[Rfam]
Record summary: The family of this 150-nucleotide RNA from Solimicrobium silvestre is "ZMP/ZTP riboswitch aptamer (pfl RNA motif)". The source organism's lineage runs through Bacteria, Betaproteobacteria, Burkholderiales, Oxalobacteraceae and Solimicrobium. A reference for the family is Jones and Ferre-D'Amare (2015), "Recognition of the bacterial alarmone ZMP through long-distance association of two RNA subdomains", Nat Struct Mol Biol.
RNA sequence: UUCGUCUCACGCAACUGGCGAAGCCGUCACACCUCUACCAAGGUGCGGCGCAAGAUGGAGUUCCAUCGGGAAGCGUGAGAUUUUGUUCGGGCUCGCAUUGUAGUAAUGCGUUACAGUAAGAGUCCAAAGCCGUACGCCUGGGUAGCCCAU
Numbered sequence: 001u002u003c004g005u006c007u008c009a010c011g012c013a014a015c016u017g018g019c020g021a022a023g024c025c026g027u028c029a030c031a032c033c034u035c036u037a038c039c040a041a042g043g044u045g046c047g048g049c050g051c052a053a054g055a056u057g058g059a060g061u062u063c064c065a066u067c068g069g070g071a072a073g074c075g076u077g078a079g080a081u082u083u084u085g086u087u088c089g090g091g092c093u094c095g096c097a098u099u100g101u102a103g104u105a106a107u108g109c110g111u112u113a114c115a116g117u118a119a120g121a122g123u124c125c126a127a128a129g130c131c132g133u134a135c136g137c138c139u140g141g142g143u144a145g146c147c148c149a150u
Base pairs, nucleotide, nucleotide: 004081005080006079007078008077009076010075011074012073015070016069017138018137019136020135055066056065057064058063129143130142131141